[Rfam]
Rhodo-rpoB RNA: a 93-nucleotide sequence from Rhodobacteraceae bacterium PARR1. The family's consensus secondary structure is taken from published work. A search with the family's covariance model found it, with a score of 74 bits. By type it is a cis-regulatory element. Taxonomically the source falls in Paracoccaceae (Bacteria, Pseudomonadati, Alphaproteobacteria, Rhodobacterales).
RNA sequence: GGUUCGGGAGCCUUCCGGUGGGACGGGGGGCAUGAAUGGAACCUUAGCACCCUUAUCGCCAAGUGGCGCUUCCGUGGCCCCGACGGAGACGCC
Dot-bracket structure: (((((....((((((((......)))))))).......))))).....................((((.(((((.........))))).))))
Numbered sequence: 001g002g003u004u005c006g007g008g009a010g011c012c013u014u015c016c017g018g019u020g021g022g023a024c025g026g027g028g029g030g031c032a033u034g035a036a037u038g039g040a041a042c043c044u045u046a047g048c049a050c051c052c053u054u055a056u057c058g059c060c061a062a063g064u065g066g067c068g069c070u071u072c073c074g075u076g077g078c079c080c081c082g083a084c085g086g087a088g089a090c091g092c093c
Stems, first nucleotide, its partner, number of pairs: 001043005010031008065093004070088005